[Rfam]
RNA sequence: AGUGUUCGUUGGUGUAAAUCCAAUCCUUUGAAUUUAAGAUGAUAAGAAAUUCUCCAUUAGUAACAAAUGGUUAUACAUUAAGCGGAGAAAAUCUUAU
Numbered sequence: 001a002g003u004g005u006u007c008g009u010u011g012g013u014g015u016a017a018a019u020c021c022a023a024u025c026c027u028u029u030g031a032a033u034u035u036a037a038g039a040u041g042a043u044a045a046g047a048a049a050u051u052c053u054c055c056a057u058u059a060g061u062a063a064c065a066a067a068u069g070g071u072u073a074u075a076c077a078u079u080a081a082g083c084g085g086a087g088a089a090a091a092u093c094u095u096a097u
Stems, first nucleotide, its partner, number of pairs: 009023004052087004056078002060074005
Dot-bracket structure: ........((((.......))))............................((((((..(((((.....)))))..)).....))))..........